[Rfam]
About this RNA
This 92-nucleotide RNA sequence belongs to the Rfam family "PhotoRC-II RNA". It is one of the family's seed sequences.
RNA sequence: UAACAAGUUCCUCUUCCUAACCGAGACCUAUGGGGAGGUUAAACACAGUCUCUCAUAUCCCGCUUGAGGGUGGCGGGAACAUAGUAUCUCCA
Numbered sequence: 001u002a003a004c005a006a007g008u009u010c011c012u013c014u015u016c017c018u019a020a021c022c023g024a025g026a027c028c029u030a031u032g033g034g035g036a037g038g039u040u041a042a043a044c045a046c047a048g049u050c051u052c053u054c055a056u057a058u059c060c061c062g063c064u065u066g067a068g069g070g071u072g073g074c075g076g077g078a079a080c081a082u083a084g085u086a087u088c089u090c091c092a
Base pairs, nucleotide, nucleotide: 013037014036015035016034017033018032019031023052024051025050026049027048058078059077060076061075062074063073064072